[Rfam]
RNA sequence: UUUGGCAUAUGAUGAUGAAAUCUUAUCCUACACACCGAAUUCACCUUGUUGAAUACAACUCUACUUAUUAUCUGAUGCCUUG
Numbered sequence: 001u002u003u004g005g006c007a008u009a010u011g012a013u014g015a016u017g018a019a020a021u022c023u024u025a026u027c028c029u030a031c032a033c034a035c036c037g038a039a040u041u042c043a044c045c046u047u048g049u050u051g052a053a054u055a056c057a058a059c060u061c062u063a064c065u066u067a068u069u070a071u072c073u074g075a076u077g078c079c080u081u082g
Stems, first nucleotide, its partner, number of pairs: 004079004

Small nucleolar RNA R16: an 82-nucleotide sequence from Trifolium medium. Taxonomically the source falls in Trifolium (Eukaryota, Streptophyta, Euphyllophyta, Mesangiospermae). On this family, see Galardi et al., Mol Cell Biol 2002: "Purified box C/D snoRNPs are able to reproduce site-specific 2'-O-methylation of target RNA in vitro". The family's RNA type in Rfam is C/D-box small nucleolar RNA. The match comes from Rfam's covariance-model search (66 bits). Gene Ontology terms of the family: nucleolus and RNA processing.